[Rfam]
Nucleotides: 073
Stems, first nucleotide, its partner, number of pairs: 013038002017073007024036003046063007
Number, partner (000 for none) and nucleotide at each position: 001000a002000a003000u004000u005000a006000a007000a008000a009000u010000u011000u012000a013038u014037c015000a016000u017073u018072g019071u020070a021069g022068a023067a024036g025035c026034g027000u028000g029000c030000u031000c032000g033000u034026c035025g036024c037014g038013a039000c040000c041000c042000c043000u044000g045000c046063c047062a048061g049060c050059c051058c052057u053000u054000u055000u056000c057052a058051g059050g060049g061048c062047u063046g064000c065000a066000a067023u068022u069021c070020u071019a072018c073017a

Background: This 73-nucleotide RNA from Parnassius apollo belongs to the Rfam family "Mammalian CPEB3 ribozyme". It scores 35 bits against the family's covariance model. NCBI's taxonomy places the organism under Eukaryota, Panarthropoda, Dicondylia, Neoptera, Parnassius. The base pairs follow the family's consensus structure, which is taken from published work. Rfam's curators write: The mammalian CPEB3 ribozyme is a self cleaving RNA located in the second intron of the CPEB3 gene which belongs to a family of genes regulating messenger RNA polyadenylation. The literature on the family includes a 2004 paper in Nature by Teixeira et al., "Autocatalytic RNA cleavage in the human beta-globin pre-mRNA promotes transcription termination".